[Rfam]
This 103-nucleotide RNA from Alkalicoccobacillus porphyridii belongs to the Rfam family "SAM riboswitch aptamer (S box leader)". Gene Ontology term of the family: regulation of gene expression. Pairs were carried over by alignment from the consensus structure, which is taken from published work. It scores 89 bits against the family's covariance model.

RNA sequence: UUCUUAUUAAGAGGAGCAGAGGGACUGGCCCGAUGACGCUUCAGCAACCCCGCCACGGCGGAAGGUGCUAAUUCCUGCAGGAGAUGAUCCUGGAUGAUAAGAG
Numbered sequence: 001u002u003c004u005u006a007u008u009a010a011g012a013g014g015a016g017c018a019g020a021g022g023g024a025c026u027g028g029c030c031c032g033a034u035g036a037c038g039c040u041u042c043a044g045c046a047a048c049c050c051c052g053c054c055a056c057g058g059c060g061g062a063a064g065g066u067g068c069u070a071a072u073u074c075c076u077g078c079a080g081g082a083g084a085u086g087a088u089c090c091u092g093g094a095u096g097a098u099a100a101g102a103g
Stems, first nucleotide, its partner, number of pairs: 001103008013042005021031003025077001027075002043069004048065002050061004078092005